[Rfam]
Nucleotides: 061
Stems, first nucleotide, its partner, number of pairs: 001059003005056006014047002017044004022039002
Number, partner (000 for none) and nucleotide at each position: 001059a002058c003057g004000c005056u006055g007054a008053g009052c010051c011000a012000c013000g014047c015046g016000c017044a018043c019042a020041a021000u022039a023038c024000a025000u026000g027000a028000u029000g030000a031000a032000g033000a034000u035000g036000a037000c038023g039022u040000u041020u042019u043018g044017u045000u046015c047014g048000u049000u050000c051010g052009g053008c054007u055006c056005g057003c058002g059001u060000u061000a
This 61-nucleotide RNA sequence from Salmo salar belongs to the Rfam family "mir-375 microRNA precursor family". On this family, see Chen et al., Genes Dev 2005: "The developmental miRNA profiles of zebrafish as determined by small RNA cloning". NCBI's taxonomy places the organism under Eukaryota, Metazoa, Neopterygii, Salmonidae, Salmo.